[Rfam]
RNA sequence: AAACCGAACAUAUCCGGGUUAGAUAUGUACCUCCCUGUUGGACUGCCCGGGCUUAUGGCCCGGGCUUUUUU
Dot-bracket structure: .......(((((((.......)))))))................((((((((.....))))))))......
RNA: Singlet oxygen resistance RNA X
Organism: Pseudooceanicola algae